This 55-nucleotide RNA from Coregonus sp. 'balchen' belongs to the Rfam family "UnaL2 LINE 3' element".
[Rfam]
RNA sequence: UGCAUUCACUAACUGUAAGUCGCUCUGGAUAAGAGCGUCUGCUAAAUGAUGUAAU
Numbered sequence: 001u002g003c004a005u006u007c008a009c010u011a012a013c014u015g016u017a018a019g020u021c022g023c024u025c026u027g028g029a030u031a032a033g034a035g036c037g038u039c040u041g042c043u044a045a046a047u048g049a050u051g052u053a054a055u
Stems, first nucleotide, its partner, number of pairs: 014044001015042003021037006
Rfam describes the family as follows. The eel long interspersed element (LINE) UnaL2 and its partner short interspersed element (SINE) share a conserved 3' tail containing a stem-loop that is critical for their retrotransposition. Presumably, the first step of retrotransposition is the recognition of their 3' tails by UnaL2-encoded reverse transcriptase.
The literature on the family includes a 2004 paper in RNA by Baba et al., "Solution structure of an RNA stem-loop derived from the 3' conserved region of eel LINE UnaL2".
The match comes from Rfam's covariance-model search (63 bits).